[Rfam]
RNA sequence: CAUCCUUAGGGAGGCACUGAUCUGAGCAUCUUCAAUCUGGUCGCUUGGCGCACGGAACCGUCCGUAGCGCGGGAUGCGCAGGGAGCCGAGUAGCGAAACCGACCGAAAGGAAG
Numbered sequence: 001c002a003u004c005c006u007u008a009g010g011g012a013g014g015c016a017c018u019g020a021u022c023u024g025a026g027c028a029u030c031u032u033c034a035a036u037c038u039g040g041u042c043g044c045u046u047g048g049c050g051c052a053c054g055g056a057a058c059c060g061u062c063c064g065u066a067g068c069g070c071g072g073g074a075u076g077c078g079c080a081g082g083g084a085g086c087c088g089a090g091u092a093g094c095g096a097a098a099c100c101g102a103c104c105g106a107a108a109g110g111a112a113g
Stems, first nucleotide, its partner, number of pairs: 001113001003111005010104002013087003022081003026077004039100002041096005
RNA: c-di-GMP-II-GAG riboswitch aptamer
Organism: Ornatilinea apprima